A member of the RNA family "permuted transfer-messenger RNA" from Meridianimarinicoccus roseus, 209 nucleotides long. The match comes from Rfam's covariance-model search (154 bits). On this family, see Laslett et al., Nucleic Acids Res 2002: "BRUCE: a program for the detection of transfer-messenger RNA genes in nucleotide sequences".
RNA sequence: GGCGAUAAACGCGCUCGUAAUAAGCGGCUCGGACCCGGGGGCGGUACCCGGCGGCUCCACCAACACUCCGUCAUUUGCGGAAGAUGGGGCCGAAACAGGAUCGACGGACGUCUAAAGGGGUUGCUUUCGCUCGGUGAGGUACCACCGUUAUCGGUCCGAAAAGUACAAUUGCAAAUGACAAUCGUGCUCCGGUUGCAGUUGCUGCGUAA
Numbered sequence: 001g002g003c004g005a006u007a008a009a010c011g012c013g014c015u016c017g018u019a020a021u022a023a024g025c026g027g028c029u030c031g032g033a034c035c036c037g038g039g040g041g042c043g044g045u046a047c048c049c050g051g052c053g054g055c056u057c058c059a060c061c062a063a064c065a066c067u068c069c070g071u072c073a074u075u076u077g078c079g080g081a082a083g084a085u086g087g088g089g090c091c092g093a094a095a096c097a098g099g100a101u102c103g104a105c106g107g108a109c110g111u112c113u114a115a116a117g118g119g120g121u122u123g124c125u126u127u128c129g130c131u132c133g134g135u136g137a138g139g140u141a142c143c144a145c146c147g148u149u150a151u152c153g154g155u156c157c158g159a160a161a162a163g164u165a166c167a168a169u170u171g172c173a174a175a176u177g178a179c180a181a182u183c184g185u186g187c188u189c190c191g192g193u194u195g196c197a198g199u200u201g202c203u204g205c206g207u208a209a
Base pairs, nucleotide, nucleotide: 001131002130003129004128005127013121014120015119016118025110026109029107030106031105035051036050037049038048039047052092053091054090055089056088057087058086132147133146134145135144